[Rfam]
RNA sequence: AUCCAACCAGGCGAUGGAGCUCGCCUUAAAUUGCCUUUCCCAGGCUAAUAGCUCCUACCAGAAU
Numbered sequence: 001a002u003c004c005a006a007c008c009a010g011g012c013g014a015u016g017g018a019g020c021u022c023g024c025c026u027u028a029a030a031u032u033g034c035c036u037u038u039c040c041c042a043g044g045c046u047a048a049u050a051g052c053u054c055c056u057a058c059c060a061g062a063a064u
Base pairs, nucleotide, nucleotide: 010025011024012023013022016055017054018053019052020051021050033045034044035043036042
The record is a 64-nucleotide RNA from Desulfofundulus salinus, which matches "Fluoride riboswitch aptamer (crcB RNA motif)" in Rfam.
A reference for the family is Baker et al. (2012), "Widespread genetic switches and toxicity resistance proteins for fluoride", Science.
The family's consensus secondary structure is taken from published work.